[Rfam]
RNA sequence: UAUUAGGUUGGUGCAAAAGUCAUUGUGGUUUUUGAUAUUAUUCUUAAUGGCGAAAACCGCAAUGACUUUUGCACCAACCUAAUA
Numbered sequence: 001u002a003u004u005a006g007g008u009u010g011g012u013g014c015a016a017a018a019g020u021c022a023u024u025g026u027g028g029u030u031u032u033u034g035a036u037a038u039u040a041u042u043c044u045u046a047a048u049g050g051c052g053a054a055a056a057c058c059g060c061a062a063u064g065a066c067u068u069u070u071g072c073a074c075c076a077a078c079c080u081a082a083u084a
Base pairs, nucleotide, nucleotide: 001084002083003082004081005080006079007078008077009076010075011074012073013072014071015070016069017068018067019066020065021064022063023062024061025060026059027058028057029056030055031054032053033052034051036049037048038047039046040045

Rfam assigns this 84-nucleotide RNA from Pan troglodytes to the family "mir-548 microRNA precursor family". For this family Rfam cites "Ultra-high throughput sequencing-based small RNA discovery and discrete statistical biomarker analysis in a collection of cervical tumours and matched controls" (Witten et al., BMC Biol, 2010). The base pairs follow the family's consensus structure, which was predicted with WAR.